The record is a 110-nucleotide RNA from Candidatus Poribacteria bacterium WGA-4E, which matches "Poribacteria-1 RNA" in Rfam. It is one of the family's seed sequences. It is annotated as a small RNA. The organism belongs to Candidatus Poribacteria, within Bacteria.

RNA sequence: GUCCCUUCGGCGCAGGCUGGGGCUGAGGGGACGGGGCGGAAGUAAAGGCUUCAAUCAGCAGUGGUAUCCGUCAGACUAAGCCUCCACUGCACAUCAAUCGACUAGGGAGA
Numbered sequence: 001g002u003c004c005c006u007u008c009g010g011c012g013c014a015g016g017c018u019g020g021g022g023c024u025g026a027g028g029g030g031a032c033g034g035g036g037c038g039g040a041a042g043u044a045a046a047g048g049c050u051u052c053a054a055u056c057a058g059c060a061g062u063g064g065u066a067u068c069c070g071u072c073a074g075a076c077u078a079a080g081c082c083u084c085c086a087c088u089g090c091a092c093a094u095c096a097a098u099c100g101a102c103u104a105g106g107g108a109g110a
Stems, first nucleotide, its partner, number of pairs: 001032008035072006058090007
Dot-bracket structure: ((((((((................))))))))..[[[[[[.................(((((((..]]]]]]...........)))))))....................